Background
Shown here is a 32-nucleotide sequence from Flavobacterium faecale, a member of the family "S16-Flavobacteria ribosomal protein leader". For this family Rfam cites "Discovery of 20 novel ribosomal leader candidates in bacteria and archaea" (Eckert and Weinberg, BMC Microbiol, 2020).
Nucleotides: 032
Stems, first nucleotide, its partner, number of pairs: 001032005008022005
Number, partner (000 for none) and nucleotide at each position: 001032a002031u003030u004029a005028a006000u007000a008022g009021a010020g011019g012018u013000c014000g015000a016000g017000u018012a019011c020010c021009u022008c023000a024000a025000a026000a027000u028005u029004u030003a031002a032001u